mir-184 microRNA precursor family: an 82-nucleotide RNA from Callorhinchus milii. A search with the family's covariance model found it, with a score of 75 bits.
[Rfam]
RNA sequence: CCACUUACAUUUCCUUAUCACUUUUCCAGCCCAGCUGCACACAGAUGUGUUGGACGGAGAACUGAUAAGGGCUUGUUUCUGG
Numbered sequence: 001c002c003a004c005u006u007a008c009a010u011u012u013c014c015u016u017a018u019c020a021c022u023u024u025u026c027c028a029g030c031c032c033a034g035c036u037g038c039a040c041a042c043a044g045a046u047g048u049g050u051u052g053g054a055c056g057g058a059g060a061a062c063u064g065a066u067a068a069g070g071g072c073u074u075g076u077u078u079c080u081g082g
Stems, first nucleotide, its partner, number of pairs: 012071009022061006030053002